[Rfam]
RNA sequence: ACCGGUCCUCGGUAGUGGCUUUCGGACCUUGAAACGUAGGACCCGCGAGCUUCGAUCGAAGACCGGC
Numbered sequence: 001a002c003c004g005g006u007c008c009u010c011g012g013u014a015g016u017g018g019c020u021u022u023c024g025g026a027c028c029u030u031g032a033a034a035c036g037u038a039g040g041a042c043c044c045g046c047g048a049g050c051u052u053c054g055a056u057c058g059a060a061g062a063c064c065g066g067c
Base pairs, nucleotide, nucleotide: 002066003065004064005063006062007061009059010058011057012056013055017051018050019049020048021047023045024044025043027040028039029038